mir-17 microRNA precursor family: a 78-nucleotide RNA sequence from Bos taurus.
From the family's description: This family represents the microRNA (miRNA) precursor mir-17, family, which includes mir-20, mir-91, and mir-103. miRNAs are transcribed as ~70nt precursors (modelled here) and subsequently processed by the Dicer enzyme to give a ~22nt product. In this case the mature sequence comes from the 3' arm of the precursor. The extents of the hairpin precursors are not generally known and are estimated based on hairpin prediction.
Lineage of the source: Eukaryota > Craniata > Vertebrata > Pecora > Bos.
Gene Ontology terms of the family: RISC complex and miRNA-mediated post-transcriptional gene silencing.

RNA sequence: CUGCCGGGGCUAAAGUGCUGACAGUGCAGAUAGUGGUCCUGUGUGCUACCGCACUGUGGGUACUUGCUGCUCCGGCAG
Numbered sequence: 001c002u003g004c005c006g007g008g009g010c011u012a013a014a015g016u017g018c019u020g021a022c023a024g025u026g027c028a029g030a031u032a033g034u035g036g037u038c039c040u041g042u043g044u045g046c047u048a049c050c051g052c053a054c055u056g057u058g059g060g061u062a063c064u065u066g067c068u069g070c071u072c073c074g075g076c077a078g
Stems, first nucleotide, its partner, number of pairs: 004075004009070002013065007021057007029050001031048003